[Rfam]
RNA sequence: GUAUCUGAAGUCUGACGAGGAUGAGAACCUCCGGGGGCAAGAGGUUCGACCCGAGCGAAGCGAGAGAACGUUGCGCCAGCAACGGCCCGCAGUGGCAAGUCAUCCUCUGUCACCGGCAG
Numbered sequence: 001g002u003a004u005c006u007g008a009a010g011u012c013u014g015a016c017g018a019g020g021a022u023g024a025g026a027a028c029c030u031c032c033g034g035g036g037g038c039a040a041g042a043g044g045u046u047c048g049a050c051c052c053g054a055g056c057g058a059a060g061c062g063a064g065a066g067a068a069c070g071u072u073g074c075g076c077c078a079g080c081a082a083c084g085g086c087c088c089g090c091a092g093u094g095g096c097a098a099g100u101c102a103u104c105c106u107c108u109g110u111c112a113c114c115g116g117c118a119g
Base pairs, nucleotide, nucleotide: 015110016109017107018106019105020104022102038094039093045091047089048088052062053061069084070083071082072081073080074079
A member of the RNA family "RtT RNA" from Salmonella enterica, 119 nucleotides long. Rfam links the family to the GO term cellular response to amino acid starvation. For this family Rfam cites "A novel RNA product of the tyrT operon of Escherichia coli" (Bosl and Kersten, Nucleic Acids Res, 1991). NCBI's taxonomy places the organism under Bacteria, Pseudomonadati, Enterobacterales, Salmonella enterica, Salmonella enterica subsp. enterica serovar Newport. It is one of the family's seed sequences. It is annotated as a cis-regulatory element. Rfam 15.1 lists 651 matches to the family in 204 species. This family represents a bacterial cis-regulatory element known as RtT RNA. The exact function of RtT is unknown although it is thought that it may be involved in changing the cellular response in relation to amino acid starvation.